[Rfam]
RNA sequence: UGCCAUCGCGUUUGUCAAGGCUGCUUCCUGUGCAACUUUUAUUGCCGCUUUUUCCAAUGGAAGAUGGUCUGUUACCGCUAUGGCAGAUCAAUCCCCCCCGUAACUUUGGCUUCUUUCUGAAGUCGAAGUUGACUCGCUUUCGUUUUGAAGGCUUAGUCGAAAAGGGCAUGGUGUGUUUUGUUUUGAGUUGAGUCCUGCUUCCACUUUACUGUGGCAUAAUAGCUGUUCUCUUAGUAACAUUUCAUAUAUUC
Numbered sequence: 001u002g003c004c005a006u007c008g009c010g011u012u013u014g015u016c017a018a019g020g021c022u023g024c025u026u027c028c029u030g031u032g033c034a035a036c037u038u039u040u041a042u043u044g045c046c047g048c049u050u051u052u053u054c055c056a057a058u059g060g061a062a063g064a065u066g067g068u069c070u071g072u073u074a075c076c077g078c079u080a081u082g083g084c085a086g087a088u089c090a091a092u093c094c095c096c097c098c099c100g101u102a103a104c105u106u107u108g109g110c111u112u113c114u115u116u117c118u119g120a121a122g123u124c125g126a127a128g129u130u131g132a133c134u135c136g137c138u139u140u141c142g143u144u145u146u147g148a149a150g151g152c153u154u155a156g157u158c159g160a161a162a163a164g165g166g167c168a169u170g171g172u173g174u175g176u177u178u179u180g181u182u183u184u185g186a187g188u189u190g191a192g193u194c195c196u197g198c199u200u201c202c203a204c205u206u207u208a209c210u211g212u213g214g215c216a217u218a219a220u221a222g223c224u225g226u227u228c229u230c231u232u233a234g235u236a237a238c239a240u241u242u243c244a245u246a247u248a249u250u251c
Base pairs, nucleotide, nucleotide: 003083004082005081006080018070019069020068021067022066024063025062026061027060028059032045033044034043035042094171095170097166098165099164102130103129104128105127106126107125108124109123110122111121112120113119136152137151138150139149140148141147142146173245174244175243179239180238181237190230191229192228197223198222199221201214202213203212
A member of the RNA family "Small nucleolar RNA snR191" from Microsporum canis, 251 nucleotides long. Its family is annotated with RNA processing and nucleolus in the Gene Ontology. Its Rfam clan is "SNORA74 clan". The family's RNA type in Rfam is H/ACA-box small nucleolar RNA. On this family, see Badis et al., RNA 2003: "A snoRNA that guides the two most conserved pseudouridine modifications within rRNA confers a growth advantage in yeast". The base pairs follow the family's consensus structure, which was predicted with WAR. The organism belongs to Microsporum canis, within Eukaryota.